The record is a 96-nucleotide RNA sequence from Branchiostoma belcheri, which matches "mir-2060 microRNA precursor family" in Rfam. A search with the family's covariance model found it, with a score of 56 bits. The family has 7 seed sequences and 3,696 matches in Rfam 15.1. Its family is annotated with RISC complex and miRNA-mediated post-transcriptional gene silencing in the Gene Ontology.
RNA sequence: ACUUGCUUGUGUAUAGAUUGUGUUCAGAACCAUGGACAGGUAUGCUUGCCUGUGUGUGUGGAUUGCUUACAGCACCAAGCACAAGAAAGUCCAAAA
Numbered sequence: 001a002c003u004u005g006c007u008u009g010u011g012u013a014u015a016g017a018u019u020g021u022g023u024u025c026a027g028a029a030c031c032a033u034g035g036a037c038a039g040g041u042a043u044g045c046u047u048g049c050c051u052g053u054g055u056g057u058g059u060g061g062a063u064u065g066c067u068u069a070c071a072g073c074a075c076c077a078a079g080c081a082c083a084a085g086a087a088a089g090u091c092c093a094a095a096a
Stems, first nucleotide, its partner, number of pairs: 004087001006085005018077001020075005027068002030065001032063001034057001036053007